The record is an 88-nucleotide sequence from Aquibacillus halophilus, which matches "c-di-GMP-I riboswitch aptamer" in Rfam.
[Rfam]
RNA sequence: UCUCGAUAAAGGCAAAACUGGCGAAAGUCAGUGACGCAAAACUAUAGGGGCUUAGGUGAAUCGUUCACCAUGCUAGCCAGUUACCGAA
Numbered sequence: 001u002c003u004c005g006a007u008a009a010a011g012g013c014a015a016a017a018c019u020g021g022c023g024a025a026a027g028u029c030a031g032u033g034a035c036g037c038a039a040a041a042c043u044a045u046a047g048g049g050g051c052u053u054a055g056g057u058g059a060a061u062c063g064u065u066c067a068c069c070a071u072g073c074u075a076g077c078c079a080g081u082u083a084c085c086g087a088a
Stems, first nucleotide, its partner, number of pairs: 012037002017032006040082004047078002049074003056068004
Lineage of the source: Bacteria > Bacillati > Bacillota > Bacilli > Aquibacillus. Rfam 15.1 lists 5,092 matches to the family in 1,772 species. The base pairs follow the family's consensus structure, which is taken from published work.